[Rfam]
RNA: Mammalian CPEB3 ribozyme
Organism: Platysternon megacephalum
RNA sequence: AGACCAGGCUGAGGGCCACAGCAAAAGCCUUCAUAUGGCAGUUCCUGUCAGCCUUAAAGGUUGCAAAUCCUGCU
Numbered sequence: 001a002g003a004c005c006a007g008g009c010u011g012a013g014g015g016c017c018a019c020a021g022c023a024a025a026a027g028c029c030u031u032c033a034u035a036u037g038g039c040a041g042u043u044c045c046u047g048u049c050a051g052c053c054u055u056a057a058a059g060g061u062u063g064c065a066a067a068u069c070c071u072g073c074u
Stems, first nucleotide, its partner, number of pairs: 013044004020074004026068001027039003049063006
Dot-bracket structure: ............((((...[[[[..[(((.......))).))))....((((((...))))))....]..]]]]